The family of this 70-nucleotide sequence is "mir-202 microRNA precursor family". The family's consensus secondary structure was predicted with RNAalifold. Gene Ontology terms of the family: RISC complex and miRNA-mediated post-transcriptional gene silencing. A reference for the family is Bentwich et al. (2005), "Identification of hundreds of conserved and nonconserved human microRNAs", Nat Genet.
RNA sequence: CUUUUUCCUAUGCAUAUACUUCUUUGAGAAUUGCUUCUAAAGAGGUAUAGGGCAUGGGAAAAUGGGGCAA
Numbered sequence: 001c002u003u004u005u006u007c008c009u010a011u012g013c014a015u016a017u018a019c020u021u022c023u024u025u026g027a028g029a030a031u032u033g034c035u036u037c038u039a040a041a042g043a044g045g046u047a048u049a050g051g052g053c054a055u056g057g058g059a060a061a062a063u064g065g066g067g068c069a070a
Stems, first nucleotide, its partner, number of pairs: 004061010015049003019045008
Rfam's curators put it in the seed alignment.